About this RNA
Small nucleolar RNA snoR99: a 106-nucleotide sequence from Kingdonia uniflora. The organism belongs to Kingdonia, within Eukaryota. The family has 9 seed sequences and 733 matches in Rfam 15.1.
RNA sequence: GUGUUCUUUUUGGAUGAAUUGGCUCCUAAUACAUAACUAUCAUCCACCUAUCACUUUGUCAGCAAUUUUGAUUUAUUUUUGCUGAUCAUUUCAAGGUGGAACAUCU
Number, nucleotide and partner (000 for none) at each position: 001g000002u000003g000004u000005u000006c000007u000008u000009u000010u000011u000012g000013g000014a000015u000016g000017a000018a000019u000020u000021g000022g000023c000024u000025c000026c000027u000028a000029a000030u000031a000032c000033a000034u000035a000036a000037c000038u000039a000040u000041c000042a000043u100044c099045c098046a097047c096048c095049u000050a000051u000052c000053a000054c000055u000056u000057u000058g086059u085060c084061a083062g082063c081064a080065a079066u000067u000068u000069u000070g000071a000072u000073u000074u000075a000076u000077u000078u000079u065080u064081g063082c062083u061084g060085a059086u058087c000088a000089u000090u000091u000092c000093a000094a000095g048096g047097u046098g045099g044100a043101a000102c000103a000104u000105c000106u000